This 67-nucleotide sequence belongs to the Rfam family "S15-Flavobacteria ribosomal protein leader". The base pairs follow the family's consensus structure, which is taken from published work. By type it is a cis-regulatory leader. Its Rfam clan is "Ribosomal Protein S15 Leader clan".
[Rfam]
RNA sequence: UACUUUUGCAGCCGUUACGCAAUAGCUGUGUAACAUACAUAAUAAUCAUUUAAAUAAUAUUGGAAUG
Number, nucleotide and partner (000 for none) at each position: 001u000002a000003c000004u000005u000006u000007u000008g000009c000010a000011g000012c000013c000014g034015u033016u032017a031018c030019g029020c000021a000022a000023u000024a000025g000026c000027u000028g000029u019030g018031u017032a016033a015034c014035a000036u000037a000038c000039a000040u000041a000042a000043u000044a000045a000046u000047c000048a000049u000050u000051u000052a000053a000054a000055u000056a000057a000058u000059a000060u000061u000062g000063g000064a000065a000066u000067g000